[Rfam]
RNA: Small nucleolar RNA SNORD116
Organism: Octodon degus
RNA sequence: AGAUUGAUGAUGACACUCAAAUUACAAUCUUUUGAAAAACUGAACAAAAUGAGUAAAACCCUAAACCAUUGUUAUCAUUACUGAGGUCC
Numbered sequence: 001a002g003a004u005u006g007a008u009g010a011u012g013a014c015a016c017u018c019a020a021a022u023u024a025c026a027a028u029c030u031u032u033u034g035a036a037a038a039a040c041u042g043a044a045c046a047a048a049a050u051g052a053g054u055a056a057a058a059c060c061c062u063a064a065a066c067c068a069u070u071g072u073u074a075u076c077a078u079u080a081c082u083g084a085g086g087u088c089c
Stems, first nucleotide, its partner, number of pairs: 002088004027054002030051001032047003